Description: A member of the RNA family "DUF3800-III RNA", 99 nucleotides long. It is one of the family's seed sequences.
[Rfam]
RNA sequence: UUAGCGGUAUCGUAAGUCCCGGCUAAGUUGGGUGUUCGGAGAACACCCCAAUCCAUCUUAUUAAGGUGGUGGUUAUCGGCUACCGGGCCGAGCCGCUAA
Numbered sequence: 001u002u003a004g005c006g007g008u009a010u011c012g013u014a015a016g017u018c019c020c021g022g023c024u025a026a027g028u029u030g031g032g033u034g035u036u037c038g039g040a041g042a043a044c045a046c047c048c049c050a051a052u053c054c055a056u057c058u059u060a061u062u063a064a065g066g067u068g069g070u071g072g073u074u075a076u077c078g079g080c081u082a083c084c085g086g087g088c089c090g091a092g093c094c095g096c097u098a099a
Base pairs, nucleotide, nucleotide: 001099002098003097004096005095006094007093010091011090012089018087019086020085021084022083026081027080028079033045034044035043036042037041053069054068055067056066057065058064

The family's consensus secondary structure is taken from published work.